RNA sequence: GGCCUCCCUUUUCGGGGCGAUCAAUCAUGGGGCUCUGUGAUUGAUGGCUGUGCAGAGGGAGGCC
Numbered sequence: 001g002g003c004c005u006c007c008c009u010u011u012u013c014g015g016g017g018c019g020a021u022c023a024a025u026c027a028u029g030g031g032g033c034u035c036u037g038u039g040a041u042u043g044a045u046g047g048c049u050g051u052g053c054a055g056a057g058g059g060a061g062g063c064c
Stems, first nucleotide, its partner, number of pairs: 001064011013052002016049003020045011